[Rfam]
RNA sequence: GCUGGCAUAAUGAUGAUAACUCUUUGCCGUUUACCCAGCUGAGUUCUGUGAUGAACAGAGUUGUAUCUGAUGUGCCAGC
Numbered sequence: 001g002c003u004g005g006c007a008u009a010a011u012g013a014u015g016a017u018a019a020c021u022c023u024u025u026g027c028c029g030u031u032u033a034c035c036c037a038g039c040u041g042a043g044u045u046c047u048g049u050g051a052u053g054a055a056c057a058g059a060g061u062u063g064u065a066u067c068u069g070a071u072g073u074g075c076c077a078g079c
Stems, first nucleotide, its partner, number of pairs: 001079007
Shown here is a 79-nucleotide RNA from Turnix velox, a member of the family "Small nucleolar RNA SNORD87". It is annotated as a C/D-box small nucleolar RNA. A search with the family's covariance model found it, with a score of 57 bits. The literature on the family includes a 2002 paper in Gene by Gogolevskaya et al., "U87 RNA, a novel C/D box small nucleolar RNA from mammalian cells". Gene Ontology terms of the family: nucleolus and RNA processing.